[Rfam]
Record summary: The record is a 97-nucleotide RNA from Terribacillus sp. AE2B 122, which matches "Guanidine-I riboswitch aptamer" in Rfam. Pairs were carried over by alignment from the consensus structure.
RNA sequence: CAGAUAGUUUUCUAGGGUUCCGCAGCGAAAGCCUGGCCUGGUCCGAGAGAAAACGCACAGCAAUGCUGUGACACGGAAGGAUAAAAGCCUGGGAGAU
Numbered sequence: 001c002a003g004a005u006a007g008u009u010u011u012c013u014a015g016g017g018u019u020c021c022g023c024a025g026c027g028a029a030a031g032c033c034u035g036g037c038c039u040g041g042u043c044c045g046a047g048a049g050a051a052a053a054c055g056c057a058c059a060g061c062a063a064u065g066c067u068g069u070g071a072c073a074c075g076g077a078a079g080g081a082u083a084a085a086a087g088c089c090u091g092g093g094a095g096a097u
Stems, first nucleotide, its partner, number of pairs: 007054006015044002020041002022038001023035003056070006072092001074095001078090003